[Rfam]
RNA sequence: CUACUCCCUCCGUCCCAUAAUAUAGGACAUUUUUUGACACUGGCAUAGUGUUAAAAAACGUCUUACAUUAUGGGACGGAGGGAGUAC
Numbered sequence: 001c002u003a004c005u006c007c008c009u010c011c012g013u014c015c016c017a018u019a020a021u022a023u024a025g026g027a028c029a030u031u032u033u034u035u036g037a038c039a040c041u042g043g044c045a046u047a048g049u050g051u052u053a054a055a056a057a058a059c060g061u062c063u064u065a066c067a068u069u070a071u072g073g074g075a076c077g078g079a080g081g082g083a084g085u086a087c
Base pairs, nucleotide, nucleotide: 003085004084005083007081008080009079010078011077013075014074015073016072017071019069020068021067023065024064025063026062027061028060030058031057032056033055034054035053036052037051038050039049040048041047
RNA: MIR1120/MIR1122 microRNA precursor family
Organism: Triticum turgidum